[Rfam]
RNA sequence: UCCGCGUAACCGAACGGUUACUGUAUGGUGGCUUGGCUAGUUAGUUACGCUAGUCUAGGUUACGAGUGCGCC
Numbered sequence: 001u002c003c004g005c006g007u008a009a010c011c012g013a014a015c016g017g018u019u020a021c022u023g024u025a026u027g028g029u030g031g032c033u034u035g036g037c038u039a040g041u042u043a044g045u046u047a048c049g050c051u052a053g054u055c056u057a058g059g060u061u062a063c064g065a066g067u068g069c070g071c072c
Stems, first nucleotide, its partner, number of pairs: 002066001005064007016033007035055007